This 101-nucleotide sequence from Lingula anatina belongs to the Rfam family "Small nucleolar RNA U6-53/MBII-28".
RNA sequence: CCUUUAUGAUGACUUGCCAUGCUAAUACUGAAGAAUCAGUCCAGUCCAUGUGGGACAAUGGUGCUGGGUUCUAGUGAGUUCAAAAAGCAGUACUGAAAGUG
Numbered sequence: 001c002c003u004u005u006a007u008g009a010u011g012a013c014u015u016g017c018c019a020u021g022c023u024a025a026u027a028c029u030g031a032a033g034a035a036u037c038a039g040u041c042c043a044g045u046c047c048a049u050g051u052g053g054g055a056c057a058a059u060g061g062u063g064c065u066g067g068g069u070u071c072u073a074g075u076g077a078g079u080u081c082a083a084a085a086a087g088c089a090g091u092a093c094u095g096a097a098a099g100u101g
Base pairs, nucleotide, nucleotide: 002099003098004097041061042060043059045057

The literature on the family includes a 2001 paper in EMBO J by Huttenhofer et al., "RNomics: an experimental approach that identifies 201 candidates for novel, small, non-messenger RNAs in mouse". By type it is a C/D-box small nucleolar RNA. The match comes from Rfam's covariance-model search (52 bits). Gene Ontology terms of the family: nucleolus and RNA processing. Lineage of the source: Eukaryota > Brachiopoda > Linguloidea > Lingulidae > Lingula.